[Rfam]
RNA sequence: UAUCAUAUUGAAUGAAUAUCUCAUAUAAUCUUGGGAAUACGGCCCAUAAGUUUCUACCCGGUUACCAUAAAUAACUGGACUAUGAGAAAGUCACGCAGCCUG
Numbered sequence: 001u002a003u004c005a006u007a008u009u010g011a012a013u014g015a016a017u018a019u020c021u022c023a024u025a026u027a028a029u030c031u032u033g034g035g036a037a038u039a040c041g042g043c044c045c046a047u048a049a050g051u052u053u054c055u056a057c058c059c060g061g062u063u064a065c066c067a068u069a070a071a072u073a074a075c076u077g078g079a080c081u082a083u084g085a086g087a088a089a090g091u092c093a094c095g096c097a098g099c100c101u102g
Base pairs, nucleotide, nucleotide: 019087020086021085022084023083024082025081029049032046033045034044035043058078059077060076061075062074063073064072

The family of this 102-nucleotide RNA sequence from Metabacillus lacus is "Purine riboswitch aptamer".
The organism belongs to Metabacillus, within Bacteria.
The family's consensus secondary structure is taken from published work.